[Rfam]
RNA sequence: AUAAGCCUAGGAUGUUCGUUAAAGCCUUGAAAUUCAACCACCAAUAAGCAUCCGGGAGUUCGGGUUUCUCUGUGGAUAACAGGCCUCGCUUUGUGGAAGUUUGAAGCAUGGAAUAGAACACCCACCUAGUUGAUACCGGGUGUGAAUUUCCAAGGUGACGGCAUCUUGGGUAUAUU
Numbered sequence: 001a002u003a004a005g006c007c008u009a010g011g012a013u014g015u016u017c018g019u020u021a022a023a024g025c026c027u028u029g030a031a032a033u034u035c036a037a038c039c040a041c042c043a044a045u046a047a048g049c050a051u052c053c054g055g056g057a058g059u060u061c062g063g064g065u066u067u068c069u070c071u072g073u074g075g076a077u078a079a080c081a082g083g084c085c086u087c088g089c090u091u092u093g094u095g096g097a098a099g100u101u102u103g104a105a106g107c108a109u110g111g112a113a114u115a116g117a118a119c120a121c122c123c124a125c126c127u128a129g130u131u132g133a134u135a136c137c138g139g140g141u142g143u144g145a146a147u148u149u150c151c152a153a154g155g156u157g158a159c160g161g162c163a164u165c166u167u168g169g170g171u172a173u174a175u176u
Stems, first nucleotide, its partner, number of pairs: 002174002005171011017160003034145003037141003054123003058119004063114001065113001067112003071108003079100002084096002087093002
RNA: 6S / SsrS RNA